[Rfam]
The family of this 122-nucleotide sequence from Paraburkholderia phymatum is "Burkholderia RNA 11". The match comes from Rfam's covariance-model search (72 bits). It is annotated as a small RNA. For this family Rfam cites "Experimental identification of small non-coding regulatory RNAs in the opportunistic human pathogen Burkholderia cenocepacia J2315" (Ramos et al., Genomics, 2013). Co-purified with Hfq, expression confirmed by Northern blot. Predicted target marZ. Overlaps coding sequence. The base pairs follow the family's consensus structure, which was predicted with RNAfold.

RNA sequence: GCAAUCUGAAACUCGCACGCCAGAACCGGACGGUCUUUCUGAGUCUGCUCGGGAUUUCCUGGUUGUGGUUCGUCGGCGCGACGUUUCUGUCGUCGUUCUUCCGCUUUGCGAAGGACGUGCUG
Numbered sequence: 001g002c003a004a005u006c007u008g009a010a011a012c013u014c015g016c017a018c019g020c021c022a023g024a025a026c027c028g029g030a031c032g033g034u035c036u037u038u039c040u041g042a043g044u045c046u047g048c049u050c051g052g053g054a055u056u057u058c059c060u061g062g063u064u065g066u067g068g069u070u071c072g073u074c075g076g077c078g079c080g081a082c083g084u085u086u087c088u089g090u091c092g093u094c095g096u097u098c099u100u101c102c103g104c105u106u107u108g109c110g111a112a113g114g115a116c117g118u119g120c121u122g
Stems, first nucleotide, its partner, number of pairs: 010049001012047001015044001018041002022037002025034002051121002054118002057115004067099002071095002074092005080087002